[Rfam]
RNA sequence: UUGAGAAAGUAGAAGCACCCGCUUCUCACCUGAUUGACGCAAAUUGCAGUUGGUAGGUCUUACGUUCAUUAAUCAUUAAUGUGUAAAUGAAUUGUAAUAGUGUGGGUGUGCAUACAUUCACACUUUUUUAUUUGU
Numbered sequence: 001u002u003g004a005g006a007a008a009g010u011a012g013a014a015g016c017a018c019c020c021g022c023u024u025c026u027c028a029c030c031u032g033a034u035u036g037a038c039g040c041a042a043a044u045u046g047c048a049g050u051u052g053g054u055a056g057g058u059c060u061u062a063c064g065u066u067c068a069u070u071a072a073u074c075a076u077u078a079a080u081g082u083g084u085a086a087a088u089g090a091a092u093u094g095u096a097a098u099a100g101u102g103u104g105g106g107u108g109u110g111c112a113u114a115c116a117u118u119c120a121c122a123c124u125u126u127u128u129u130a131u132u133u134g135u
Base pairs, nucleotide, nucleotide: 011026012025013024014023015022016021028058029057030056036051037050038049039047040046101122102121103120104119105118106117107116108115109114

The record is a 135-nucleotide RNA sequence from Bacillus sp. HNG, which matches "Ribosomal protein L20 leader" in Rfam. Its family is annotated with regulation of gene expression in the Gene Ontology. From the family's description: This family is a putative r-protein leader autoregulatory structure found in B. subtilis and other low-GC Gram-positive bacteria. It is located in the 5' untranslated regions of mRNAs encoding initiation factor 3 followed by ribosomal proteins L35 and L20 (infC-rpmI-rplT). The family's consensus secondary structure was predicted with CMfinder. Lineage of the source: Bacteria > Bacillati > Bacillota > Bacilli > Bacillus. The match comes from Rfam's covariance-model search (83 bits).